This 105-nucleotide RNA from Vulpes vulpes belongs to the Rfam family "mir-8834 microRNA precursor family". The organism belongs to Vulpes, within Eukaryota. The family's consensus secondary structure was predicted with RNAalifold. The match comes from Rfam's covariance-model search (64 bits).
RNA sequence: GGGAGGAACAACCGCAGUGGUGGGGGAAACUCUGGGACCCUGGAGUCAGCUCCCGCAGUAGCUCCGGGGCUCUCCGUCUGCAGGGCCUGGGGGCUCCCGGGCGGG
Numbered sequence: 001g002g003g004a005g006g007a008a009c010a011a012c013c014g015c016a017g018u019g020g021u022g023g024g025g026g027a028a029a030c031u032c033u034g035g036g037a038c039c040c041u042g043g044a045g046u047c048a049g050c051u052c053c054c055g056c057a058g059u060a061g062c063u064c065c066g067g068g069g070c071u072c073u074c075c076g077u078c079u080g081c082a083g084g085g086c087c088u089g090g091g092g093g094c095u096c097c098c099g100g101g102c103g104g105g
Stems, first nucleotide, its partner, number of pairs: 002097004009089002012085002019078007028071001030069007040058003